The family of this 81-nucleotide RNA from Oceanibacterium hippocampi is "Makes More Granules Regulator RNA (mmgR)". It is annotated as a small RNA. The organism belongs to Oceanibacterium, within Bacteria. Rfam's curators write: SuhB later renamed mmgR (makes more granules regulator) was a putative non-coding RNA found multiple times in the Agrobacterium tumefaciens genome and related alpha-proteobacteria. Other non-coding RNAs uncovered in the same analysis include: speF, ybhL, metA, and serC.Several studies inSinorhizobium meliloti showed that suhB element is indeed a non-coding RNA:firstly it was detected on Northern blot and called Sm8RNA, secondly in an RNAseq study referred to as SmelC689.The mutant phenotype's (strain lacking the small RNA) cytoplasm contains higher content of polyhydroxybutyrate (PBH)storage granules than wild type strain. The sRNA is required to limit the PBH intracellular accumulation when the nitrogen-fixing Sinorhizobium meliloti is under condition of surplus carbon in relation to nitrogen. It has been renamed to mmgR. Further study confirmed that mmgR fine-tunes the regulation of PBH storage.Northern blot confirmed the expression of the sRNA in other rhizobia species. It scores 61 bits against the family's covariance model.

RNA sequence: UGCCGCAGCCCUUAAUCGGGCGUUUCCUCCCUUGACUUGGGCUGCUUCCCGAAACGGAAGCAGCCCCUUUUUUUUGCCUGC
Numbered sequence: 001u002g003c004c005g006c007a008g009c010c011c012u013u014a015a016u017c018g019g020g021c022g023u024u025u026c027c028u029c030c031c032u033u034g035a036c037u038u039g040g041g042c043u044g045c046u047u048c049c050c051g052a053a054a055c056g057g058a059a060g061c062a063g064c065c066c067c068u069u070u071u072u073u074u075u076g077c078c079u080g081c
Stems, first nucleotide, its partner, number of pairs: 008021004039066011